[Rfam]
Overview
The record is a 72-nucleotide RNA from Pseudomonas bharatica, which matches "narK RNA" in Rfam. The family's RNA type in Rfam is cis-regulatory element.
RNA sequence: GGCGCGCCCCUUGCUUAACCCUGCCUAUCAGGCAAUCAACGUCGAUUGCCCCAUUCACGACAAAGGCGCCGU
Numbered sequence: 001g002g003c004g005c006g007c008c009c010c011u012u013g014c015u016u017a018a019c020c021c022u023g024c025c026u027a028u029c030a031g032g033c034a035a036u037c038a039a040c041g042u043c044g045a046u047u048g049c050c051c052c053a054u055u056c057a058c059g060a061c062a063a064a065g066g067c068g069c070c071g072u
Stems, first nucleotide, its partner, number of pairs: 031050007
Dot-bracket structure: ..............................(((((((......)))))))......................